[Rfam]
RNA sequence: CCUCUGCGGUGUGGAAGACUAGUGAUUUUGUUGUUCUAGGUGUCAGAACUGACAACAAAUCAUGGUCUGCCUCACUGCUCUGUGA
Numbered sequence: 001c002c003u004c005u006g007c008g009g010u011g012u013g014g015a016a017g018a019c020u021a022g023u024g025a026u027u028u029u030g031u032u033g034u035u036c037u038a039g040g041u042g043u044c045a046g047a048a049c050u051g052a053c054a055a056c057a058a059a060u061c062a063u064g065g066u067c068u069g070c071c072u073c074a075c076u077g078c079u080c081u082g083u084g085a
Base pairs, nucleotide, nucleotide: 001082007077008076009075010074011073013071014070016068017067018066019065020064022063023062024061025060026059027058028057030056031055032054033053034052035051
This 85-nucleotide RNA sequence from Megalops atlanticus belongs to the Rfam family "mir-7 microRNA precursor family". About the family: This family represents the microRNA (miRNA) precursor mir-7. Its family is annotated with RISC complex and miRNA-mediated post-transcriptional gene silencing in the Gene Ontology.